[Rfam]
RNA sequence: CUUUGUAUUCUUCCACAGCUUUCUUGAACUGCAACUUCGUCUUGGAUCGUUCUUUCCAUUGAUAUUGUUCUUUGUGCGUAUAUAGGCGGUAUACAAGUACGUCGUUGCGGUUCAAUAAAGCUGUGGGAAGAUACAGACU
Numbered sequence: 001c002u003u004u005g006u007a008u009u010c011u012u013c014c015a016c017a018g019c020u021u022u023c024u025u026g027a028a029c030u031g032c033a034a035c036u037u038c039g040u041c042u043u044g045g046a047u048c049g050u051u052c053u054u055u056c057c058a059u060u061g062a063u064a065u066u067g068u069u070c071u072u073u074g075u076g077c078g079u080a081u082a083u084a085g086g087c088g089g090u091a092u093a094c095a096a097g098u099a100c101g102u103c104g105u106u107g108c109g110g111u112u113c114a115a116u117a118a119a120g121c122u123g124u125g126g127g128a129a130g131a132u133a134c135a136g137a138c139u
Base pairs, nucleotide, nucleotide: 003136004135005134006133007132013126014125015124017122018121019120020119021118022117024115025114026113027112029110030109031108032107033106034105035104
MIR396 microRNA precursor family: a 139-nucleotide RNA from Hibiscus syriacus. A reference for the family is Jones-Rhoades and Bartel (2004), "Computational identification of plant microRNAs and their targets, including a stress-induced miRNA", Mol Cell.